[Rfam]
Nucleotides: 266
Stems, first nucleotide, its partner, number of pairs: 001266006009058003012030004017025001019023001035055005064259006073250003077246001079243005085237004092230002096227004104220002106217003115211008123200006129191002132189005138181005148173004156165003
Number, partner (000 for none) and nucleotide at each position: 001266c002265c003264g004263u005262g006261c007000u008000a009058g010057a011056u012030g013029g014028g015027g016000a017025g018000g019023u020000a021000g022000c023019g024000g025017u026000g027015c028014c029013c030012u031000g032000u033000a034000g035055c036054c037053u038052g039051c040000a041000a042000c043000c044000c045000g046000c047000u048000a049000u050000a051039g052038c053037a054036g055035g056011a057010u058009u059000g060000a061000a062000u063000u064259c065258c066257c067256u068255g069254c070000c071000c072000a073250g074249g075248u076000u077246u078000g079243c080242u081241u082240a083239u084000g085237u086236g087235g088234g089000g090000u091000c092230u093229g094000c095000c096227c097226c098225g099224g100000a101000a102000a103000a104220g105219u106217g107216g108215c109000g110000u111000u112000g113000a114000g115211g116210a117209u118208u119207g120206g121205g122204u123200c124199c125198c126197g127196c128195g129191c130190a131000a132189c133188g134187g135186a136185a137000a138181u139180u140179c141178a142177u143000g144000a145000a146000c147000c148173c149172c150171g151170u152000c153000a154000g155000g156165u157164c158163c159000g160000g161000g162000a163158g164157g165156a166000a167000g168000c169000a170151g171150c172149g173148g174000u175000a176000a177142g178141u179140g180139a181138a182000c183000c184000c185136u186135u187134u188133c189132g190130u191129g192000u193000g194000c195128c196127g197126c198125g199124g200123g201000u202000g203000u204122g205121c206120c207119u208118g209117g210116u211115c212000g213000g214000a215108g216107u217106u218000a219105a220104c221000u222000g223000c224099c225098c226097g227096g228000g229093u230092a231000a232000c233000g234088c235087u236086c237085g238000g239083a240082u241081g242080a243079g244000c245000a246077a247000u248075a249074u250073c251000a252000a253000a254069g255068c256067a257066g258065g259064g260000u261006g262005c263004a264003c265002g266001g
Rfam assigns this 266-nucleotide sequence from Caloramator sp. E03 to the family "Bacterial large signal recognition particle RNA". For this family Rfam cites "SRPDB: Signal Recognition Particle Database" (Rosenblad et al., Nucleic Acids Res, 2003). NCBI's taxonomy places the organism under Bacteria, Bacillati, Bacillota, Eubacteriales, Caloramator.